[Rfam]
RNA: Small nucleolar RNA snoR27
Organism: Dioscorea zingiberensis
RNA sequence: UUCGGGUCAGUGAUGUGAUGAGAAAUCUGCGUUAUCUUUCUGUAUAUCCUUUAUAGGAUCAAUUGAAGAUGACUGUGUUCACUGAGACCUGCU
Dot-bracket structure: ..(((((...............................................................................)))))..